[Rfam]
Nucleotides: 080
Stems, first nucleotide, its partner, number of pairs: 003077002011036002016031006034067001039073004046068001047065003
Number, partner (000 for none) and nucleotide at each position: 001000c002000g003077c004076g005000a006000u007000a008000a009000c010000g011036g012035c013000a014000a015000a016031c017030c018029u019028g020027u021026c022000g023000a024000a025000a026021g027020g028019c029018a030017g031016g032000g033000a034067c035012g036011c037000a038000a039073a040072g041071c042070u043000a044000a045000a046068g047065g048064c049063c050000u051000u052000c053000c054000c055000g056000u057000a058000a059000g060000g061000a062000u063049g064048g065047c066000a067034g068046c069000c070042a071041g072040u073039u074000a075000c076004c077003g078000a079000a080000a